RNA sequence: UUAUGAAGAUGAUGAAAGUAUUGUAAAGAGUGAUGGAUGAUUCAUGUGAUCAUAAUUCAAAUACUCUUCGCUACGUUCUUUCUGAUUCAUGC
Numbered sequence: 001u002u003a004u005g006a007a008g009a010u011g012a013u014g015a016a017a018g019u020a021u022u023g024u025a026a027a028g029a030g031u032g033a034u035g036g037a038u039g040a041u042u043c044a045u046g047u048g049a050u051c052a053u054a055a056u057u058c059a060a061a062u063a064c065u066c067u068u069c070g071c072u073a074c075g076u077u078c079u080u081u082c083u084g085a086u087u088c089a090u091g092c
Base pairs, nucleotide, nucleotide: 004089005088006087007086
RNA: Small nucleolar RNA R32/R81/Z41
Organism: Rosa chinensis